RNA sequence: UUAUCAGGCUGGAUAAUCUUUACCUGUUCUACUUUUUGGAGGGCAGAUUAGAACAUGAUGACUGAAGUUUGCAUGAUUUGUGAUUAGAGUCUCUGCAUGCAGUCAGGACUUCCCACACACUGAUUGAUCCUAUUUGAU
Numbered sequence: 001u002u003a004u005c006a007g008g009c010u011g012g013a014u015a016a017u018c019u020u021u022a023c024c025u026g027u028u029c030u031a032c033u034u035u036u037u038g039g040a041g042g043g044c045a046g047a048u049u050a051g052a053a054c055a056u057g058a059u060g061a062c063u064g065a066a067g068u069u070u071g072c073a074u075g076a077u078u079u080g081u082g083a084u085u086a087g088a089g090u091c092u093c094u095g096c097a098u099g100c101a102g103u104c105a106g107g108a109c110u111u112c113c114c115a116c117a118c119a120c121u122g123a124u125u126g127a128u129c130c131u132a133u134u135u136g137a138u
Stems, first nucleotide, its partner, number of pairs: 024046003028043003032039002075093002079089001081086001098126002102124005

This 138-nucleotide RNA from Felis catus belongs to the Rfam family "U8 small nucleolar RNA". Pairs were carried over by alignment from the consensus structure, which is taken from published work. Rfam classes the family as a C/D-box small nucleolar RNA. It is one of the family's seed sequences. The family has 55 seed sequences and 1,597 matches in Rfam 15.1.